[Rfam]
RNA sequence: GCAACCUCAAGCUGGCGCAUGGCAAUGUGGCGGUGUUCCGCUCGCUGCUGGGCAUUUCGUGGAUGUGGUUCUUCGGCGCCGUGUUCCUGUCGAUGUUUCCGGCCUUCGCACGCGAUGUGCUG
Numbered sequence: 001g002c003a004a005c006c007u008c009a010a011g012c013u014g015g016c017g018c019a020u021g022g023c024a025a026u027g028u029g030g031c032g033g034u035g036u037u038c039c040g041c042u043c044g045c046u047g048c049u050g051g052g053c054a055u056u057u058c059g060u061g062g063a064u065g066u067g068g069u070u071c072u073u074c075g076g077c078g079c080c081g082u083g084u085u086c087c088u089g090u091c092g093a094u095g096u097u098u099c100c101g102g103c104c105u106u107c108g109c110a111c112g113c114g115a116u117g118u119g120c121u122g
Base pairs, nucleotide, nucleotide: 010049011048012047014045017041018040021037022036023035024034026032051121052120053119054118055117057115058114059113060112061111063105065103067099068098071095074092075091076090077089078088081086
This 122-nucleotide sequence from Rubrivivax sp. A210 belongs to the Rfam family "Burkholderia RNA 11". Co-purified with Hfq, expression confirmed by Northern blot. Predicted target marZ. Overlaps coding sequence. Gene Ontology term of the family: protein binding. For this family Rfam cites "Experimental identification of small non-coding regulatory RNAs in the opportunistic human pathogen Burkholderia cenocepacia J2315" (Ramos et al., Genomics, 2013). It scores 97 bits against the family's covariance model. The base pairs follow the family's consensus structure, which was predicted with RNAfold. Lineage of the source: Bacteria > Pseudomonadati > Pseudomonadota > Burkholderiales > Rubrivivax. Rfam classes the family as a small RNA.